[Rfam]
RNA sequence: UGAUCAUCCAGAGGACCUGAGGGACCUGGCCCGGAGACGGUCCGGCAACCUGCCCGGCGGCAAGGUGCCAAUGCCAGGAGCGAUGAGGA
Number, nucleotide and partner (000 for none) at each position: 001u089002g000003a000004u086005c085006a084007u083008c082009c000010a000011g000012a000013g043014g042015a041016c040017c039018u000019g000020a000021g032022g031023g030024a000025c000026c077027u076028g075029g074030c023031c022032c021033g000034g000035a000036g000037a000038c000039g017040g016041u015042c014043c013044g069045g068046c067047a066048a000049c065050c064051u062052g061053c060054c059055c000056g000057g000058c000059g054060g053061c052062a051063a000064g050065g049066u047067g046068c045069c044070a000071a000072u000073g081074c029075c028076a027077g026078g000079a000080g000081c073082g008083a007084u006085g005086a004087g000088g000089a001
Rfam assigns this 89-nucleotide RNA from Actinomadura verrucosospora to the family "SAM riboswitch aptamer (S box leader)". Lineage of the source: Bacteria > Bacillati > Actinomycetes > Thermomonosporaceae > Actinomadura. For this family Rfam cites "The S box regulon: a new global transcription termination control system for methionine and cysteine biosynthesis genes in gram-positive bacteria" (Grundy and Henkin, Mol Microbiol, 1998). The family is grouped with related families in Rfam's "SAM clan". A search with the family's covariance model found it, with a score of 63 bits.